[Rfam]
Source information:
This 82-nucleotide RNA sequence from Zingiber officinale belongs to the Rfam family "Small nucleolar RNA SNORD34". It is annotated as a C/D-box small nucleolar RNA. Gene Ontology terms of the family: RNA processing and nucleolus. A search with the family's covariance model found it, with a score of 43 bits. The family is grouped with related families in Rfam's "SNORD34 clan". snoRNA U34 is found in intron 5 of the ribosomal protein L13a gene in humans. The base pairs follow the family's consensus structure, which was predicted with PFOLD. For this family Rfam cites "Purified box C/D snoRNPs are able to reproduce site-specific 2'-O-methylation of target RNA in vitro" (Galardi et al., Mol Cell Biol, 2002). Taxonomically the source falls in Zingiber (Eukaryota, Viridiplantae, Mesangiospermae, Zingiberaceae). Rfam 15.1 lists 1,319 matches to the family in 583 species.

RNA sequence: CAAGGCCCAGGAUGAUCAACUAGUAUUUGCCUACAUUGCUUGAUUGCUGUAUGAUAAAAGAUUAUGUUGUUCUGAGGCUUUG
Numbered sequence: 001c002a003a004g005g006c007c008c009a010g011g012a013u014g015a016u017c018a019a020c021u022a023g024u025a026u027u028u029g030c031c032u033a034c035a036u037u038g039c040u041u042g043a044u045u046g047c048u049g050u051a052u053g054a055u056a057a058a059a060g061a062u063u064a065u066g067u068u069g070u071u072c073u074g075a076g077g078c079u080u081u082g
Stems, first nucleotide, its partner, number of pairs: 001082002004079004